[Rfam]
RNA sequence: CUUUCUAGCAGCUGCAUUGUACACACUGUGUGUAUGGACUGGAACGCACAGCGCAUGCAAUGUGGACGCUCUGCAA
Numbered sequence: 001c002u003u004u005c006u007a008g009c010a011g012c013u014g015c016a017u018u019g020u021a022c023a024c025a026c027u028g029u030g031u032g033u034a035u036g037g038a039c040u041g042g043a044a045c046g047c048a049c050a051g052c053g054c055a056u057g058c059a060a061u062g063u064g065g066a067c068g069c070u071c072u073g074c075a076a
Stems, first nucleotide, its partner, number of pairs: 012065002015062007024053001026051006
RNA: mir-460 microRNA precursor family
Organism: Cephalopterus ornatus